[Rfam]
Overview:
A member of the RNA family "Glycine riboswitch aptamer" from Variovorax sp. PDC80, 118 nucleotides long. It scores 48 bits against the family's covariance model. The source organism's lineage runs through Bacteria, Pseudomonadota, Betaproteobacteria, Burkholderiales and Variovorax.

RNA sequence: GAAACGCCGUCUGGAGAGCCAGCACAUCGCCCAUCGCGGCCGUGCUGCGCCGAAGGAGCAAGUCCGCUGCGAGGUGCAGCGGAUGAAACUCUCAGGUACCGAGGACAGGGGGAGCGGC
Numbered sequence: 001g002a003a004a005c006g007c008c009g010u011c012u013g014g015a016g017a018g019c020c021a022g023c024a025c026a027u028c029g030c031c032c033a034u035c036g037c038g039g040c041c042g043u044g045c046u047g048c049g050c051c052g053a054a055g056g057a058g059c060a061a062g063u064c065c066g067c068u069g070c071g072a073g074g075u076g077c078a079g080c081g082g083a084u085g086a087a088a089c090u091c092u093c094a095g096g097u098a099c100c101g102a103g104g105a106c107a108g109g110g111g112g113a114g115c116g117g118c
Stems, first nucleotide, its partner, number of pairs: 007112002010109004020047006049097003052093002056091003062084010